[Rfam]
RNA sequence: ACCUUAUCAAGAGUGGUGGAGGGAUAGGCCCUAUGAAACCCGGCAACCGGUGUGAAAGUCGGUGCUAAAUCCUACGGAGCAAAUGCUCUGGAAGAUGAGGU
Numbered sequence: 001a002c003c004u005u006a007u008c009a010a011g012a013g014u015g016g017u018g019g020a021g022g023g024a025u026a027g028g029c030c031c032u033a034u035g036a037a038a039c040c041c042g043g044c045a046a047c048c049g050g051u052g053u054g055a056a057a058g059u060c061g062g063u064g065c066u067a068a069a070u071c072c073u074a075c076g077g078a079g080c081a082a083a084u085g086c087u088c089u090g091g092a093a094g095a096u097g098a099g100g101u
Stems, first nucleotide, its partner, number of pairs: 001101008013041001015040003021031003025074004042066004047062005070093001075090006
RNA: SAM riboswitch aptamer (S box leader)